About this RNA
The family of this 371-nucleotide RNA from Aspergillus tanneri is "RNase MRP".
RNA sequence: UCCUCGCUCAAAGGAUCGCAUUCAAAGCUCACACACAGGGUCUCUCCUAGCGAGAGGUCCUCUUCUUAAGCUUUGGGGAAAGUCCCCGGACACCCUGUCCAAUUAUUUAACGGUCAGGCAAUGCGGAAACGCGCCGCCAUAGAAGCAAAUCGAUAGCGGCUGAUUGCCCUAUUCUCUCCCAGCAUCCAUAUCUAUAUCCGACACCCGGCUCUUUUGCGAAUCUGGUGGAAACAAUGGUGGUAUAGUGGGGUGCUGGAGGGAGGUUGUUUCAUUGGGUUGCCUUUCGUCGUGUUUGAAUAGUCAUGCGAUUGCCUAGUAGGAUCCUGUUAUCCUGGCUAGGUAACUCAAUGGGGCUCAUUCUUGAGGCGAGG
Numbered sequence: 001u002c003c004u005c006g007c008u009c010a011a012a013g014g015a016u017c018g019c020a021u022u023c024a025a026a027g028c029u030c031a032c033a034c035a036c037a038g039g040g041u042c043u044c045u046c047c048u049a050g051c052g053a054g055a056g057g058u059c060c061u062c063u064u065c066u067u068a069a070g071c072u073u074u075g076g077g078g079a080a081a082g083u084c085c086c087c088g089g090a091c092a093c094c095c096u097g098u099c100c101a102a103u104u105a106u107u108u109a110a111c112g113g114u115c116a117g118g119c120a121a122u123g124c125g126g127a128a129a130c131g132c133g134c135c136g137c138c139a140u141a142g143a144a145g146c147a148a149a150u151c152g153a154u155a156g157c158g159g160c161u162g163a164u165u166g167c168c169c170u171a172u173u174c175u176c177u178c179c180c181a182g183c184a185u186c187c188a189u190a191u192c193u194a195u196a197u198c199c200g201a202c203a204c205c206c207g208g209c210u211c212u213u214u215u216g217c218g219a220a221u222c223u224g225g226u227g228g229a230a231a232c233a234a235u236g237g238u239g240g241u242a243u244a245g246u247g248g249g250g251u252g253c254u255g256g257a258g259g260g261a262g263g264u265u266g267u268u269u270c271a272u273u274g275g276g277u278u279g280c281c282u283u284u285c286g287u288c289g290u291g292u293u294u295g296a297a298u299a300g301u302c303a304u305g306c307g308a309u310u311g312c313c314u315a316g317u318a319g320g321a322u323c324c325u326g327u328u329a330u331c332c333u334g335g336c337u338a339g340g341u342a343a344c345u346c347a348a349u350g351g352g353g354c355u356c357a358u359u360c361u362u363g364a365g366g367c368g369a370g371g
Stems, first nucleotide, its partner, number of pairs: 002371006008364004014310006022076007038060009081355002084353004122133004172261003179256005185249003189244003231238002312340006
Dot-bracket structure: .((((((((((..((((((..(((((((.........(((((((((.....))))))))).........)))))))....[[.[[[[..................................((((....))))......................................(((....(((((.(((.(((.......................................((....))...)))..)))..)))))..)))...........................................)))))).((((((.................)))))).........]]]]]].....)))).))))))

Record summary:
On this family, see Schmitt et al., FASEB J 1993: "Secondary structure of RNase MRP RNA as predicted by phylogenetic comparison". Rfam's curators write: RNase MRP is an enzymatically active ribonucleoprotein with two distinct roles in eukaryotes. NCBI's taxonomy places the organism under Eukaryota, saccharomyceta, Eurotiomycetidae, Aspergillaceae, Aspergillus subgen. Circumdati.